Rfam assigns this 238-nucleotide part of an RNA from Schizosaccharomyces japonicus to the family "Eukaryotic large subunit ribosomal RNA".
RNA sequence: CAUUGGAAACCAGUCUUACCUUGGUGAGAUCAGCUGUUUACUUGUAGACAGUGCACUCUGAACCUAGGUAGGUCAGCAUCAGUUUUCGGGGACGGAAAAAGGAAUAAGGGAAAGUGGCUUUUGGGCUUGCUCAGAAGUGUUAUAGCCCUUAUUGUAAUACGCCCACUGGGGACUGAGGUCUGCGACUUUGUCAAGGAUGCUGACAUAAUGGUUUUCAAUGGCCCGUCUUGAAACACGG
Dot-bracket structure: ((((((((((((....(((((.((......................................)).)))))...(((((((...................................................................................................................)))))))......))))))))))))..((((........))))
Numbered sequence: 001c002a003u004u005g006g007a008a009a010c011c012a013g014u015c016u017u018a019c020c021u022u023g024g025u026g027a028g029a030u031c032a033g034c035u036g037u038u039u040a041c042u043u044g045u046a047g048a049c050a051g052u053g054c055a056c057u058c059u060g061a062a063c064c065u066a067g068g069u070a071g072g073u074c075a076g077c078a079u080c081a082g083u084u085u086u087c088g089g090g091g092a093c094g095g096a097a098a099a100a101g102g103a104a105u106a107a108g109g110g111a112a113a114g115u116g117g118c119u120u121u122u123g124g125g126c127u128u129g130c131u132c133a134g135a136a137g138u139g140u141u142a143u144a145g146c147c148c149u150u151a152u153u154g155u156a157a158u159a160c161g162c163c164c165a166c167u168g169g170g171g172a173c174u175g176a177g178g179u180c181u182g183c184g185a186c187u188u189u190g191u192c193a194a195g196g197a198u199g200c201u202g203a204c205a206u207a208a209u210g211g212u213u214u215u216c217a218a219u220g221g222c223c224c225g226u227c228u229u230g231a232a233a234c235a236c237g238g
Stems, first nucleotide, its partner, number of pairs: 001220012017070005023064002074202007223238004

NCBI's taxonomy places the organism under Eukaryota, Taphrinomycotina, Schizosaccharomycetes, Schizosaccharomycetaceae, Schizosaccharomyces japonicus.
The family's consensus secondary structure is taken from published work.
Clan: LSU clan.